Shown here is a 163-nucleotide sequence from Kosmotoga olearia, a member of the family "Group II catalytic intron D1-D4-3". Its family is annotated with Group II intron splicing in the Gene Ontology. Pairs were carried over by alignment from the consensus structure. The organism belongs to Kosmotoga olearia, within Bacteria.
[Rfam]
RNA sequence: UCACUGGUAACGGUGAAUCUGAAGGAAGCCUAAGGCAAAAUCUGGAACUGAACGAAAGUGACCAGUGUUGGCCGGUAGAGUGGGUAACCUUGCCGUGUAUGGGGAAGCCCGAGCUCCAACUCUACAGGUUUGGAUGGCAGACGAACCCGUAGUAGUGUUGAAC
Numbered sequence: 001u002c003a004c005u006g007g008u009a010a011c012g013g014u015g016a017a018u019c020u021g022a023a024g025g026a027a028g029c030c031u032a033a034g035g036c037a038a039a040a041u042c043u044g045g046a047a048c049u050g051a052a053c054g055a056a057a058g059u060g061a062c063c064a065g066u067g068u069u070g071g072c073c074g075g076u077a078g079a080g081u082g083g084g085u086a087a088c089c090u091u092g093c094c095g096u097g098u099a100u101g102g103g104g105a106a107g108c109c110c111g112a113g114c115u116c117c118a119a120c121u122c123u124a125c126a127g128g129u130u131u132g133g134a135u136g137g138c139a140g141a142c143g144a145a146c147c148c149g150u151a152g153u154a155g156u157g158u159u160g161a162a163c
Base pairs, nucleotide, nucleotide: 001016002015003014004013005012006011028163031160032159035156036155042149044147045146048140049139050138062137063136064135066133071129072128073127075125076124077123078122079121080120081119082110083109084108085107088103089102090101